[Rfam]
RNA sequence: ACGUCGGUCUGGGCCCGGGCGGUGAACUCCCAGCGGGCGUCGGGCAGCGGGUGGUGGCCGAAGUGGUCGCCGUCGCUGAGGACGCCGAGGCUCGCCUCCUCACCGUACGCGCUCUCGCCGAGCCGCUCGAUGCGGCCGUGGGCGAUCAGGUAGAUCUUGUCCACGGGCUCGCCGCGGCGGACGAUCACGUCGCCCUUGCGGAACUCCUCCUUGACGAACCGGUCCGCGAUCGACUUGACGACCGCGUCGUCGGGGAAGUGCCGCAGCAUACCGAGUUCGCGCAGCAUGGGCGGGAUGACCCGCAGUUCGGAGCCGGUCUUGACGAAGCUGAUGCGCCCGUCGCCGAGGGUGUAGCUGACCGUGCGGUUGACCCGGUACGUGCCGCCGCUGGUCUGGACCCACGGCAGGAUCCUCAGCAGCCAGCGGGAGCUGAUGCCCUGCAUCUGCGGGGCGGACUUGGUGGUCGUCGCCAGGUUCCGCGCCGCGUCGGUGCUGAGGCUCUGGCG
Numbered sequence: 001a002c003g004u005c006g007g008u009c010u011g012g013g014c015c016c017g018g019g020c021g022g023u024g025a026a027c028u029c030c031c032a033g034c035g036g037g038c039g040u041c042g043g044g045c046a047g048c049g050g051g052u053g054g055u056g057g058c059c060g061a062a063g064u065g066g067u068c069g070c071c072g073u074c075g076c077u078g079a080g081g082a083c084g085c086c087g088a089g090g091c092u093c094g095c096c097u098c099c100u101c102a103c104c105g106u107a108c109g110c111g112c113u114c115u116c117g118c119c120g121a122g123c124c125g126c127u128c129g130a131u132g133c134g135g136c137c138g139u140g141g142g143c144g145a146u147c148a149g150g151u152a153g154a155u156c157u158u159g160u161c162c163a164c165g166g167g168c169u170c171g172c173c174g175c176g177g178c179g180g181a182c183g184a185u186c187a188c189g190u191c192g193c194c195c196u197u198g199c200g201g202a203a204c205u206c207c208u209c210c211u212u213g214a215c216g217a218a219c220c221g222g223u224c225c226g227c228g229a230u231c232g233a234c235u236u237g238a239c240g241a242c243c244g245c246g247u248c249g250u251c252g253g254g255g256a257a258g259u260g261c262c263g264c265a266g267c268a269u270a271c272c273g274a275g276u277u278c279g280c281g282c283a284g285c286a287u288g289g290g291c292g293g294g295a296u297g298a299c300c301c302g303c304a305g306u307u308c309g310g311a312g313c314c315g316g317u318c319u320u321g322a323c324g325a326a327g328c329u330g331a332u333g334c335g336c337c338c339g340u341c342g343c344c345g346a347g348g349g350u351g352u353a354g355c356u357g358a359c360c361g362u363g364c365g366g367u368u369g370a371c372c373c374g375g376u377a378c379g380u381g382c383c384g385c386c387g388c389u390g391g392u393c394u395g396g397a398c399c400c401a402c403g404g405c406a407g408g409a410u411c412c413u414c415a416g417c418a419g420c421c422a423g424c425g426g427g428a429g430c431u432g433a434u435g436c437c438c439u440g441c442a443u444c445u446g447c448g449g450g451g452c453g454g455a456c457u458u459g460g461u462g463g464u465c466g467u468c469g470c471c472a473g474g475u476u477c478c479g480c481g482c483c484g485c486g487u488c489g490g491u492g493c494u495g496a497g498g499c500u501c502u503g504g505c506g
Base pairs, nucleotide, nucleotide: 006399007398008397009396010395011394012393014391015390021337022336024334028331029330036329037328038327040325041324048321049320050319051318052316056314057313058310059309060308061307063245064244066242067241068240069239071237072236074120075119077117084112086111087110089108092105094103127233128232129231131226132225136221138219139218141215143213144212145211148208149207150206152205153204158201162198163197165195166194167193168192169187173183174182175180246299247298248297249296250295251294259292260291261290263285264284266280267279338351339350340349341348360387361386363385364384365383366382370380371379400440401439403437404436405435406434409431412427413426414425416424446485447484448483449482451480452479453478454477455476456474457473458472459471460470461469497505
Description
Shown here is a 506-nucleotide RNA sequence from Streptomyces vinaceus, a member of the family "Saccharopolyspora sRNA 350". Rfam classes the family as an antisense RNA. On this family, see Liu et al., PLoS One 2013: "Prediction and characterization of small non-coding RNAs related to secondary metabolites in Saccharopolyspora erythraea". The family has 2 seed sequences and 1,170 matches in Rfam 15.1. Gene Ontology term of the family: regulation of secondary metabolite biosynthetic process.